Rfam assigns this 361-nucleotide RNA sequence from Salirhabdus euzebyi to the family "Group I catalytic intron". The base pairs follow the family's consensus structure, which is taken from published work.
Nucleotides: 361
Base pairs, nucleotide, nucleotide: 001012002011003010022034023033024032080309081308082307083306085304086303090180091179092178093177094176095175100171101170102169181213182212188206189205194201195200217340219339220338221337222336223335311326312325313324314323315322346359347358348357349356350355
Number, partner (000 for none) and nucleotide at each position: 001012u002011g003010a004000c005000g006000u007000u008000g009000a010003u011002u012001a013000u014000g015000a016000c017000u018000u019000a020000a021000u022034u023033g024032c025000u026000g027000c028000g029000u030000a031000a032024g033023c034022a035000a036000a037000a038000a039000c040000a041000g042000u043000c044000a045000c046000a047000g048000u049000c050000g051000u052000c053000c054000u055000a056000a057000c058000u059000g060000g061000u062000a063000a064000c065000g066000g067000u068000u069000a070000g071000c072000g073000a074000u075000u076000a077000u078000g079000a080309u081308c082307g083306g084000g085304u086303g087000a088000a089000u090180u091179g092178c093177u094176g095175g096000a097000a098000a099000c100171c101170c102169c103000u104000u105000a106000a107000a108000c109000u110000u111000u112000c113000a114000a115000c116000u117000c118000c119000a120000c121000a122000a123000c124000g125000u126000a127000g128000c129000u130000g131000g132000a133000a134000a135000c136000a137000g138000c139000a140000g141000g142000c143000g144000u145000g146000a147000a148000g149000g150000a151000u152000u153000a154000a155000a156000a157000a158000g159000g160000a161000g162000a163000a164000a165000g166000a167000u168000u169102g170101g171100g172000c173000a174000a175095u176094c177093a178092g179091c180090a181213g182212c183000c184000a185000a186000g187000c188206u189205c190000c191000u192000g193000u194201u195200u196000c197000g198000a199000a200195a201194g202000a203000a204000u205189g206188g207000a208000g209000a210000a211000g212182g213181u214000u215000c216000a217340a218000c219339g220338a221337c222336u223335a224000g225000g226000a227000u228000a229000a230000a231000c232000c233000a234000c235000c236000u237000a238000a239000a240000g241000c242000a243000a244000a245000u246000a247000g248000c249000a250000a251000u252000g253000g254000u255000g256000a257000u258000g259000a260000a261000a262000u263000c264000c265000g266000u267000a268000g269000g270000a271000a272000a273000g274000g275000u276000a277000a278000g279000c280000c281000u282000g283000a284000g285000u286000a287000a288000c289000u290000u291000a292000u293000c294000u295000a296000u297000c298000c299000g300000a301000a302000g303086u304085g305000c306083c307082c308081g309080a310000c311326c312325c313324c314323u315322u316000c317000a318000u319000g320000c321000a322315a323314a324313g325312g326311g327000u328000g329000a330000a331000g332000a333000u334000a335223u336222a337221g338220u339219c340217u341000a342000g343000u344000c345000a346359a347358u348357c349356a350355u351000g352000a353000a354000a355350g356349u357348g358347a359346u360000u361000g